[Rfam]
RNA sequence: AUUUAUUCUUCUUUGGUGAUCUAGUUGUAUGAGUGUGUUAUAUAUCAUAAAGCUGGUUCAGCAAAGCAGAAUGCAU
Numbered sequence: 001a002u003u004u005a006u007u008c009u010u011c012u013u014u015g016g017u018g019a020u021c022u023a024g025u026u027g028u029a030u031g032a033g034u035g036u037g038u039u040a041u042a043u044a045u046c047a048u049a050a051a052g053c054u055g056g057u058u059c060a061g062c063a064a065a066g067c068a069g070a071a072u073g074c075a076u
Base pairs, nucleotide, nucleotide: 001076002075004073005072007070008069009068011066012065013064014063015062017060018059019058021056022055023054024053025052026051028049029048030047031046032045
Shown here is a 76-nucleotide RNA from Asbolus verrucosus, a member of the family "mir-9/mir-79 microRNA precursor family". Rfam 15.1 lists 5,647 matches to the family in 934 species. The match comes from Rfam's covariance-model search (60 bits). Taxonomically the source falls in Asbolus (Eukaryota, Arthropoda, Neoptera, Endopterygota).